[Rfam]
RNA sequence: CGGUCUCUUCAGGGCAGGGUGAAAUUCCCGACCGGCGGUGAUGCAGGCGCAGCGCCUGCGCAGUCCGCGAGCGAAAGCUGAACCGGUGAAAAUCCGGUACCGACAGUCCGAGUCCCGUGCGGCAGAAGCCGCGCGGCGCUUUACAGUCUGGAUGGAAGAAGAAGUCC
Numbered sequence: 001c002g003g004u005c006u007c008u009u010c011a012g013g014g015c016a017g018g019g020u021g022a023a024a025u026u027c028c029c030g031a032c033c034g035g036c037g038g039u040g041a042u043g044c045a046g047g048c049g050c051a052g053c054g055c056c057u058g059c060g061c062a063g064u065c066c067g068c069g070a071g072c073g074a075a076a077g078c079u080g081a082a083c084c085g086g087u088g089a090a091a092a093u094c095c096g097g098u099a100c101c102g103a104c105a106g107u108c109c110g111a112g113u114c115c116c117g118u119g120c121g122g123c124a125g126a127a128g129c130c131g132c133g134c135g136g137c138g139c140u141u142u143a144c145a146g147u148c149u150g151g152a153u154g155g156a157a158g159a160a161g162a163a164g165u166c167c
Stems, first nucleotide, its partner, number of pairs: 003165002006162005017029003033102002035068004063100002071078002082098005104150003